[Rfam]
RNA: Ascomycota telomerase RNA, nucleotides 1295 to 1724
RNA sequence: AAACACACGGAAAGACUCGGCUUGGCUCGGAUUGUCGUCGCGGCGUCGCAACGCUGGUUGCCGAGUUUGGCGGAAGUUGUGUCAAUGAAAGUCGGUUUACAUUGGGCGCUUGGUUGCAGUUGCAGGCCUUGGUAACUCGGAGGGUGUGACGGAUCGUGGGGUACAGGAUGGCUUGUUGAGGACAGGCUUAGGCUUCAGCAUCAUGGUGACGGCAGCGGCGGAUGAGGCCUUGACCGGGACCCAUCUAGAGUUGGUGUCAAAGUCUUCCUUGUCCGGGCUUGUCACCUCCCCGUCGAUUUGCUGAUCCAUGGUGGCUGAAUGCCGGCCUGGCCAGUUCUUGUCAUUCGUUGGAAAGGGCGGGCCUACUGGGAGGCAGCCCUGGUCGCCCUCGUUCCAGAAAUGGCGGGAGGGCGGCCCCUCUUCCGGGAGG
Numbered sequence: 001a002a003a004c005a006c007a008c009g010g011a012a013a014g015a016c017u018c019g020g021c022u023u024g025g026c027u028c029g030g031a032u033u034g035u036c037g038u039c040g041c042g043g044c045g046u047c048g049c050a051a052c053g054c055u056g057g058u059u060g061c062c063g064a065g066u067u068u069g070g071c072g073g074a075a076g077u078u079g080u081g082u083c084a085a086u087g088a089a090a091g092u093c094g095g096u097u098u099a100c101a102u103u104g105g106g107c108g109c110u111u112g113g114u115u116g117c118a119g120u121u122g123c124a125g126g127c128c129u130u131g132g133u134a135a136c137u138c139g140g141a142g143g144g145u146g147u148g149a150c151g152g153a154u155c156g157u158g159g160g161g162u163a164c165a166g167g168a169u170g171g172c173u174u175g176u177u178g179a180g181g182a183c184a185g186g187c188u189u190a191g192g193c194u195u196c197a198g199c200a201u202c203a204u205g206g207u208g209a210c211g212g213c214a215g216c217g218g219c220g221g222a223u224g225a226g227g228c229c230u231u232g233a234c235c236g237g238g239a240c241c242c243a244u245c246u247a248g249a250g251u252u253g254g255u256g257u258c259a260a261a262g263u264c265u266u267c268c269u270u271g272u273c274c275g276g277g278c279u280u281g282u283c284a285c286c287u288c289c290c291c292g293u294c295g296a297u298u299u300g301c302u303g304a305u306c307c308a309u310g311g312u313g314g315c316u317g318a319a320u321g322c323c324g325g326c327c328u329g330g331c332c333a334g335u336u337c338u339u340g341u342c343a344u345u346c347g348u349u350g351g352a353a354a355g356g357g358c359g360g361g362c363c364u365a366c367u368g369g370g371a372g373g374c375a376g377c378c379c380u381g382g383u384c385g386c387c388c389u390c391g392u393u394c395c396a397g398a399a400a401u402g403g404c405g406g407g408a409g410g411g412c413g414g415c416c417c418c419u420c421u422u423c424c425g426g427g428a429g430g
Base pairs, nucleotide, nucleotide: 238258239257240256241254242253243252260270261269262268